c-di-GMP-I-GGC riboswitch aptamer: a 93-nucleotide RNA from Neobacillus piezotolerans. NCBI's taxonomy places the organism under Bacteria, Bacillota, Bacilli, Caryophanales, Neobacillus. A search with the family's covariance model found it, with a score of 65 bits.
[Rfam]
RNA sequence: AACGACAAUGGCAAACCUAUUGAAAAGUAGGGACGCAAAGCCAUAGGGCCUCAGCCUUUUCUUCCGAAAAGAGUGGCAGCCUGGCUACCGAAA
Number, nucleotide and partner (000 for none) at each position: 001a000002a000003c090004g089005a000006c000007a000008a000009u000010g000011g036012c035013a000014a000015a000016c031017c030018u029019a028020u027021u026022g000023a000024a000025a000026a021027g020028u019029a018030g017031g016032g000033a000034c079035g012036c011037a000038a000039a086040g085041c084042c083043a000044u000045a082046g081047g080048g077049c076050c075051u000052c000053a000054g000055c000056c000057u000058u000059u000060u000061c000062u000063u000064c000065c000066g000067a000068a000069a000070a000071g000072a000073g000074u000075g050076g049077c048078a000079g034080c047081c046082u045083g042084g041085c040086u039087a000088c000089c004090g003091a000092a000093a000